[Rfam]
RNA sequence: AGAGCCUUUCAAAGAGGGCUUUUGGGGCUGUGAAACCAGGAGCUCUUAACUCUAUGAUGGAAGAUUGAAGUUCUCCAUAGGAUGCCACAGUCAUUCAAUAGUGCUAAGUUUUUCUGACGAAACGUAAGA
Numbered sequence: 001a002g003a004g005c006c007u008u009u010c011a012a013a014g015a016g017g018g019c020u021u022u023u024g025g026g027g028c029u030g031u032g033a034a035a036c037c038a039g040g041a042g043c044u045c046u047u048a049a050c051u052c053u054a055u056g057a058u059g060g061a062a063g064a065u066u067g068a069a070g071u072u073c074u075c076c077a078u079a080g081g082a083u084g085c086c087a088c089a090g091u092c093a094u095u096c097a098a099u100a101g102u103g104c105u106a107a108g109u110u111u112u113u114c115u116g117a118c119g120a121a122a123c124g125u126a127a128g129a
Stems, first nucleotide, its partner, number of pairs: 003058001005056001007054001014047008023039001026037002072122001074120002079115004089105002092103004